RNA: Small nucleolar RNA SNORD19
RNA sequence: GAGCGGUGAGGAAGACACAAAAGCACACUGACAAACCUCUGGAGACUGUCAGAUCCAACUCUGAGCUCACUGUUCUU
Numbered sequence: 001g002a003g004c005g006g007u008g009a010g011g012a013a014g015a016c017a018c019a020a021a022a023g024c025a026c027a028c029u030g031a032c033a034a035a036c037c038u039c040u041g042g043a044g045a046c047u048g049u050c051a052g053a054u055c056c057a058a059c060u061c062u063g064a065g066c067u068c069a070c071u072g073u074u075c076u077u
Stems, first nucleotide, its partner, number of pairs: 001068004